[Rfam]
RNA sequence: GGAUACUUGAGAGGAGCUGUCCCUAGUACGAGAGGACCGGGAUGGACGCACCUCUGGUGGACCUGUUGUUGCGCCAGCAGCAUAGCAGGGUAGCUAAGUGCGGACGGGAUAACCGCUGAAAGCAUCUAAGCGGGAAGCCCCCCUCAAAACCAGGUAUCCCUUGAGAGCCGUGGAAGACCACCACGUUGAUAGGCUGGAAGUGGAAGCGCAGCGAUGCGUGGAGCGGACCAGUACUAAUUGCUCGAUAG
Numbered sequence: 001g002g003a004u005a006c007u008u009g010a011g012a013g014g015a016g017c018u019g020u021c022c023c024u025a026g027u028a029c030g031a032g033a034g035g036a037c038c039g040g041g042a043u044g045g046a047c048g049c050a051c052c053u054c055u056g057g058u059g060g061a062c063c064u065g066u067u068g069u070u071g072c073g074c075c076a077g078c079a080g081c082a083u084a085g086c087a088g089g090g091u092a093g094c095u096a097a098g099u100g101c102g103g104a105c106g107g108g109a110u111a112a113c114c115g116c117u118g119a120a121a122g123c124a125u126c127u128a129a130g131c132g133g134g135a136a137g138c139c140c141c142c143c144u145c146a147a148a149a150c151c152a153g154g155u156a157u158c159c160c161u162u163g164a165g166a167g168c169c170g171u172g173g174a175a176g177a178c179c180a181c182c183a184c185g186u187u188g189a190u191a192g193g194c195u196g197g198a199a200g201u202g203g204a205a206g207c208g209c210a211g212c213g214a215u216g217c218g219u220g221g222a223g224c225g226g227a228c229c230a231g232u233a234c235u236a237a238u239u240g241c242u243c244g245a246u247a248g
Stems, first nucleotide, its partner, number of pairs: 001159008011145004017045007047102005055096003062089005067082006106140003113133005162245001165243004169185005190236003193232005200224001206219005
RNA: Bacterial large subunit ribosomal RNA, nucleotides 2530 to 2777